[Rfam]
c-di-GMP-I riboswitch aptamer: a 120-nucleotide RNA sequence from Candidatus Brocadia sinica.
RNA sequence: UCGCGAUAAAGACAAACCCUGAGUGAUCAGGUGGCGCAAAGUAAAGGGUCUUUUAAACAGACCAAGAGCGCAGUUUAUAAAAGACCGCUUGUUGGGAAAAAAGAUAGCCUUACUGCCGAA
Numbered sequence: 001u002c003g004c005g006a007u008a009a010a011g012a013c014a015a016a017c018c019c020u021g022a023g024u025g026a027u028c029a030g031g032u033g034g035c036g037c038a039a040a041g042u043a044a045a046g047g048g049u050c051u052u053u054u055a056a057a058c059a060g061a062c063c064a065a066g067a068g069c070g071c072a073g074u075u076u077a078u079a080a081a082a083g084a085c086c087g088c089u090u091g092u093u094g095g096g097a098a099a100a101a102a103g104a105u106a107g108c109c110u111u112a113c114u115g116c117c118g119a120a
Base pairs, nucleotide, nucleotide: 013036018031019030020029021028022027040114041113042112043111045110046109047108048105049104050103051099052098053097054096

Taxonomically the source falls in Candidatus Brocadia sinica (Bacteria, Planctomycetota, Candidatus Brocadiia, Candidatus Brocadia). The match comes from Rfam's covariance-model search (49 bits).